[Rfam]
RNA sequence: UUCAAUGUUGUCAAUGAUGCAUUCUUUUUGGAACUGAAUUCAAGUGAUCUUAACGCAAAUUCGUCACUACCACUGAGACAACAUUGAG
Numbered sequence: 001u002u003c004a005a006u007g008u009u010g011u012c013a014a015u016g017a018u019g020c021a022u023u024c025u026u027u028u029u030g031g032a033a034c035u036g037a038a039u040u041c042a043a044g045u046g047a048u049c050u051u052a053a054c055g056c057a058a059a060u061u062c063g064u065c066a067c068u069a070c071c072a073c074u075g076a077g078a079c080a081a082c083a084u085u086g087a088g
Base pairs, nucleotide, nucleotide: 001088002087003086004085005084006083007082008081009080010079011078012077

Shown here is an 88-nucleotide sequence from Galemys pyrenaicus, a member of the family "Small nucleolar RNA SNORD70". The family's RNA type in Rfam is C/D-box small nucleolar RNA. A reference for the family is Huttenhofer et al. (2001), "RNomics: an experimental approach that identifies 201 candidates for novel, small, non-messenger RNAs in mouse", EMBO J. The base pairs follow the family's consensus structure. The organism belongs to Galemys, within Eukaryota. Rfam 15.1 lists 1,085 matches to the family in 579 species.